[Rfam]
RNA sequence: UCGAGGUCAUCUACAAAUGGAUAAGAUUUUGUAUUAGUGUAUACGAAUCGUUGAAACAAAGUAGCAAUACCCAUGUAUUGCUUAGCAGGACAUGGGGUAUUGCUACUUG
Numbered sequence: 001u002c003g004a005g006g007u008c009a010u011c012u013a014c015a016a017a018u019g020g021a022u023a024a025g026a027u028u029u030u031g032u033a034u035u036a037g038u039g040u041a042u043a044c045g046a047a048u049c050g051u052u053g054a055a056a057c058a059a060a061g062u063a064g065c066a067a068u069a070c071c072c073a074u075g076u077a078u079u080g081c082u083u084a085g086c087a088g089g090a091c092a093u094g095g096g097g098u099a100u101u102g103c104u105a106c107u108u109g
Stems, first nucleotide, its partner, number of pairs: 008019003059108012071095003075091002078088002
The record is a 109-nucleotide RNA sequence from Musa balbisiana, which matches "Plastid-psbA-1 3UTR RNA" in Rfam. A search with the family's covariance model found it, with a score of 80 bits. Plastid psbA-1 is a non-coding RNA (ncRNA) present in plastids. It was identified in inverted repeat sequences in the 3 prime untranslate region (3UTR) of photosystem II quinone-binding protein (psbA). A reference for the family is Richter et al. (2023), "Retrograde signaling in plants: A critical review focusing on the GUN pathway and beyond", Plant Commun.